[Rfam]
RNA: mir-15 microRNA precursor family
RNA sequence: ACUUGGACUGCUAUAGCAGCGCAUCAUGGUUUGAAACAAUGUUGAAAAGGUGCGAACCAUCAUUUGCUGCUUUAGUAUUUUAAGA
Numbered sequence: 001a002c003u004u005g006g007a008c009u010g011c012u013a014u015a016g017c018a019g020c021g022c023a024u025c026a027u028g029g030u031u032u033g034a035a036a037c038a039a040u041g042u043u044g045a046a047a048a049g050g051u052g053c054g055a056a057c058c059a060u061c062a063u064u065u066g067c068u069g070c071u072u073u074a075g076u077a078u079u080u081u082a083a084g085a
Base pairs, nucleotide, nucleotide: 002084003083004082005081006080013073015071016070017069018068019067020066021065023063024062026060027059028058029057030056031055032054033053035051
Dot-bracket structure: .(((((......(.(((((((.((.((((((((.(...............).)))))))).)).))))))).)......))))).